[Rfam]
RNA sequence: GAAAGACAGGUCUGUGGUUGAAAGUCGAAGCCAGUCGCAGGCAAAGCGAUCCACGUAAGCCGGCCAAAGCGCCGGUGAUCAUAGUGCGGCCUAGAAGUAAGUCCGACCGGAAAACCGAGAGAGCGUGUAGUGGGGGGAUCUUAUCCUAUGAGCGACAGCUCCAGUCGGCGGGUGUGGGGGUAAAAACCAGGUCAGCUGCCUUUC
Numbered sequence: 001g002a003a004a005g006a007c008a009g010g011u012c013u014g015u016g017g018u019u020g021a022a023a024g025u026c027g028a029a030g031c032c033a034g035u036c037g038c039a040g041g042c043a044a045a046g047c048g049a050u051c052c053a054c055g056u057a058a059g060c061c062g063g064c065c066a067a068a069g070c071g072c073c074g075g076u077g078a079u080c081a082u083a084g085u086g087c088g089g090c091c092u093a094g095a096a097g098u099a100a101g102u103c104c105g106a107c108c109g110g111a112a113a114a115c116c117g118a119g120a121g122a123g124c125g126u127g128u129a130g131u132g133g134g135g136g137g138a139u140c141u142u143a144u145c146c147u148a149u150g151a152g153c154g155a156c157a158g159c160u161c162c163a164g165u166c167g168g169c170g171g172g173u174g175u176g177g178g179g180g181u182a183a184a185a186a187c188c189a190g191g192u193c194a195g196c197u198g199c200c201u202u203u204c
Stems, first nucleotide, its partner, number of pairs: 001204005007198003012195003015189005028175001030173001031041001034090006050084001055079001058076001060074001062072001082182001103168005108117003121161004130153002136146003
Description: A member of the RNA family "raiA RNA", 204 nucleotides long. Pairs were carried over by alignment from the consensus structure, which is taken from published work.